[Rfam]
RNA sequence: CCGGUGUUCCCUCCGAGUCGUCACCAGGGCAGGAGCGGGGGACCCAUCCUCCACCGGGCGGCACCGAACCGCGGUGUCGUCCUCGGGGUGAAGUGCGCAGCGCGAUGGUCGCGCGACCCACCGGGCAGCCCAGCCCGAACCCGACAGCUCACCUCGCAGGCGAACGGGAAGGAUCA
Numbered sequence: 001c002c003g004g005u006g007u008u009c010c011c012u013c014c015g016a017g018u019c020g021u022c023a024c025c026a027g028g029g030c031a032g033g034a035g036c037g038g039g040g041g042a043c044c045c046a047u048c049c050u051c052c053a054c055c056g057g058g059c060g061g062c063a064c065c066g067a068a069c070c071g072c073g074g075u076g077u078c079g080u081c082c083u084c085g086g087g088g089u090g091a092a093g094u095g096c097g098c099a100g101c102g103c104g105a106u107g108g109u110c111g112c113g114c115g116a117c118c119c120a121c122c123g124g125g126c127a128g129c130c131c132a133g134c135c136c137g138a139a140c141c142c143g144a145c146a147g148c149u150c151a152c153c154u155c156g157c158a159g160g161c162g163a164a165c166g167g168g169a170a171g172g173a174u175c176a
Stems, first nucleotide, its partner, number of pairs: 001033002035157006045085001086142003094120002097117001123136004
c-di-AMP riboswitch aptamer (ydaO/yuaA leader): a 176-nucleotide RNA from Candidatus Protofrankia datiscae. Pairs were carried over by alignment from the consensus structure.